[Rfam]
RNA sequence: AGAGGUCACAAGUUUGAGGUCACAGCAGAAGCGCUUGUGGCACGGCCCUGUCAGAUCCCAAUGAAUCUGCAACUUCUGCU
Numbered sequence: 001a002g003a004g005g006u007c008a009c010a011a012g013u014u015u016g017a018g019g020u021c022a023c024a025g026c027a028g029a030a031g032c033g034c035u036u037g038u039g040g041c042a043c044g045g046c047c048c049u050g051u052c053a054g055a056u057c058c059c060a061a062u063g064a065a066u067c068u069g070c071a072a073c074u075u076c077u078g079c080u
Stems, first nucleotide, its partner, number of pairs: 016048001018047004024080007031043001033041001052069005058063001

Overview:
The record is an 80-nucleotide sequence from Crocodylus porosus, which matches "Mammalian CPEB3 ribozyme" in Rfam. The mammalian CPEB3 ribozyme is a self cleaving RNA located in the second intron of the CPEB3 gene which belongs to a family of genes regulating messenger RNA polyadenylation. Lineage of the source: Eukaryota > Opisthokonta > Euteleostomi > Dipnotetrapodomorpha > Crocodylus. Pairs were carried over by alignment from the consensus structure, which is taken from published work.